Record summary
The family of this 74-nucleotide RNA sequence from Myotis brandtii is "mir-9193 microRNA precursor family". Taxonomically the source falls in Myotis (Eukaryota, Eumetazoa, Gnathostomata, Sarcopterygii). It scores 57 bits against the family's covariance model. The family has 2 seed sequences and 6,008 matches in Rfam 15.1. The family's consensus secondary structure was predicted with RNAalifold.

RNA sequence: GUUGGGGGGGGGGUUUCCCUCAGCCCGGAUUGCGAGAGGGCACAGGCCAGUUCGAGGGACCCCACCGGUGCACG
Number, nucleotide and partner (000 for none) at each position: 001g000002u000003u072004g071005g000006g069007g000008g000009g066010g065011g000012g063013g062014u000015u000016u059017c058018c057019c056020u055021c054022a000023g052024c000025c050026c000027g048028g047029a000030u045031u044032g043033c000034g041035a000036g000037a000038g000039g000040g000041c034042a000043c032044a031045g030046g000047c028048c027049a000050g025051u000052u023053c000054g021055a020056g019057g018058g017059a016060c000061c000062c013063c012064a000065c010066c009067g000068g000069u006070g000071c004072a003073c000074g000